The record is a 42-nucleotide sequence from Amphibacillus xylanus, which matches "Ribosomal protein L19 leader" in Rfam.
Rfam links the family to the GO term regulation of gene expression.
A search with the family's covariance model found it, with a score of 38 bits.
The family's RNA type in Rfam is cis-regulatory leader.
The literature on the family includes a 1994 paper in Prog Nucleic Acid Res Mol Biol by Zengel and Lindahl, "Diverse mechanisms for regulating ribosomal protein synthesis in Escherichia coli".
From the family's description: This family is a putative r-protein leader autoregulatory structure found in B. subtilis and other low-GC Gram-positive bacteria. It is located in the 5' untranslated regions of mRNAs encoding ribosomal protein L19 (rplS).
The source organism's lineage runs through Bacteria, Bacillati, Bacilli, Bacillaceae and Amphibacillus xylanus.
The base pairs follow the family's consensus structure, which was predicted with CMfinder.
RNA sequence: ACGAUGUUCCGCUGACAUAAUCAGAUGAGUCAUGAGCAUUAG
Number, nucleotide and partner (000 for none) at each position: 001a000002c000003g040004a039005u038006g037007u036008u035009c034010c000011g000012c000013u032014g031015a030016c029017a000018u027019a000020a000021u000022c000023a000024g000025a000026u000027g018028a000029g016030u015031c014032a013033u000034g009035a008036g007037c006038a005039u004040u003041a000042g000